U7 small nuclear RNA: an 84-nucleotide RNA from Sapajus apella. The family's consensus secondary structure was predicted with PFOLD.
RNA sequence: CGGUGUUACAGCUCUUAGAAUUUGUCUAGCAGUCUUUCUGGUUUUUUUUGUUUUUGUUUUUUGUUUUUUUACCAGAAAGCCCCA
Numbered sequence: 001c002g003g004u005g006u007u008a009c010a011g012c013u014c015u016u017a018g019a020a021u022u023u024g025u026c027u028a029g030c031a032g033u034c035u036u037u038c039u040g041g042u043u044u045u046u047u048u049u050g051u052u053u054u055u056g057u058u059u060u061u062u063g064u065u066u067u068u069u070u071a072c073c074a075g076a077a078a079g080c081c082c083c084a
Stems, first nucleotide, its partner, number of pairs: 032081001034079009

Annotation
Animal histone pre-mRNAs are spliced by a different mechanism than nuclear pre-mRNAs and self-splicing introns.